[Rfam]
RNA sequence: ACUGGGAGCGUGGCGUCUCUUGUAAUCCGGCUACUCGGAAGUCGGGAAUUGCGGGAUGGCUUGAGGUCGGGAAGCCUGUUGCUAAGUCGUUCAUGUUGACUGGACGUCCACACUAAGCCUGGUAUUAAUAUGCAUCCCUCCGAGGAGUCGGGGGGACGCAGGUUGACUAAGGAGAGGCGAACCGGGCCAGGGGGGAAACCCAGCAGCCAAAAGUCUCCGUAUCGGGCAGUAGUGGGAUCGCGGCCGGGAGUGCGCGAUUAGUUACAGCCUGACCAACAUAGCCAGACCCUUUCCUUU
Numbered sequence: 001a002c003u004g005g006g007a008g009c010g011u012g013g014c015g016u017c018u019c020u021u022g023u024a025a026u027c028c029g030g031c032u033a034c035u036c037g038g039a040a041g042u043c044g045g046g047a048a049u050u051g052c053g054g055g056a057u058g059g060c061u062u063g064a065g066g067u068c069g070g071g072a073a074g075c076c077u078g079u080u081g082c083u084a085a086g087u088c089g090u091u092c093a094u095g096u097u098g099a100c101u102g103g104a105c106g107u108c109c110a111c112a113c114u115a116a117g118c119c120u121g122g123u124a125u126u127a128a129u130a131u132g133c134a135u136c137c138c139u140c141c142g143a144g145g146a147g148u149c150g151g152g153g154g155g156a157c158g159c160a161g162g163u164u165g166a167c168u169a170a171g172g173a174g175a176g177g178c179g180a181a182c183c184g185g186g187c188c189a190g191g192g193g194g195g196a197a198a199c200c201c202a203g204c205a206g207c208c209a210a211a212a213g214u215c216u217c218c219g220u221a222u223c224g225g226g227c228a229g230u231a232g233u234g235g236g237a238u239c240g241c242g243g244c245c246g247g248g249a250g251u252g253c254g255c256g257a258u259u260a261g262u263u264a265c266a267g268c269c270u271g272a273c274c275a276a277c278a279u280a281g282c283c284a285g286a287c288c289c290u291u292u293c294c295u296u297u
Stems, first nucleotide, its partner, number of pairs: 001042003004021005026039003044295005051288001053287001057284005065274007076267004081262003085259006092252003096248001100247004105242003108236002111234005117227009126165004131160003135156009167171001174217005185208003192201003